This 122-nucleotide RNA sequence from Koleobacter methoxysyntrophicus belongs to the Rfam family "SAM riboswitch aptamer (S box leader)".
[Rfam]
RNA sequence: CUCUUAUCAAGAGAGGUGGAGGGAAGGGCCCUAUGAAACCCGGCAACAGCUGCGCAAAAACGCAGAAUUGUGCCAAUUCCUGCAGUGGGUAAACUAAAUUUUACACCACUGAAAGAUGAGAG
Dot-bracket structure: ((((((((....(.(((...(((..[[[)))......))))((((.((.(((..........)))...))))))...(]]].((((((.................))))))..)))))))))
Overview
Its family is annotated with regulation of gene expression in the Gene Ontology.